[Rfam]
Nucleotides: 184
Stems, first nucleotide, its partner, number of pairs: 006179006016085009032070006089119004093114007120146002123143008148169007
Number, partner (000 for none) and nucleotide at each position: 001000u002000u003000a004000a005000u006179a007178g008177a009176u010175a011174g012000a013000g014000g015000c016085g017084c018083g019082u020081c021080u022079u023078u024077u025000a026000a027000g028000a029000g030000u031000a032070g033069g034068c035067a036066g037065g038000c039000g040000g041000a042000u043000g044000u045000g046000a047000a048000a049000g050000a051000a052000g053000a054000c055000a056000c057000a058000g059000a060000u061000g062000a063000a064000a065037c066036c067035u068034g069033c070032u071000g072000a073000a074000a075000g076000g077024a078023a079022a080021a081020g082019a083018c084017g085016c086000c087000g088000a089119a090118g091117g092116g093114a094113g095112u096111u097110u098109c099108u100000u101000u102000c103000u104000u105000c106000u107000u108099g109098g110097a111096a112095a113094c114093u115000u116092c117091c118090c119089u120146g121145g122000g123143u124142g125141c126140a127139u128138g129137g130136a131000g132000a133000a134000u135000a136130u137129c138128c139127a140126u141125g142124c143123a144000a145121c146120u147000g148169u149168c150167a151166c152165c153164a154163a155000u156000u157000g158000u159000a160000a161000a162000a163154u164153u165152g166151g167150u168149g169148g170000a171000g172000c173000g174011c175010u176009a177008u178007c179006u180000g181000u182000u183000a184000a
A member of the RNA family "Lysine riboswitch aptamer" from Caldicellulosiruptor owensensis, 184 nucleotides long. It scores 137 bits against the family's covariance model.